[Rfam]
RNA sequence: AUUUAGGUUGGUGCAAAAGUAAUUGCAGUUUUUGCAAUUAAAAGUAAUGACAAAAACUGCAAUUACUUUUGCACCAACCUAAAU
Numbered sequence: 001a002u003u004u005a006g007g008u009u010g011g012u013g014c015a016a017a018a019g020u021a022a023u024u025g026c027a028g029u030u031u032u033u034g035c036a037a038u039u040a041a042a043a044g045u046a047a048u049g050a051c052a053a054a055a056a057c058u059g060c061a062a063u064u065a066c067u068u069u070u071g072c073a074c075c076a077a078c079c080u081a082a083a084u
Stems, first nucleotide, its partner, number of pairs: 001084034037048004
Dot-bracket structure: ((((((((((((((((((((((((((((((((((..((((....))))..))))))))))))))))))))))))))))))))))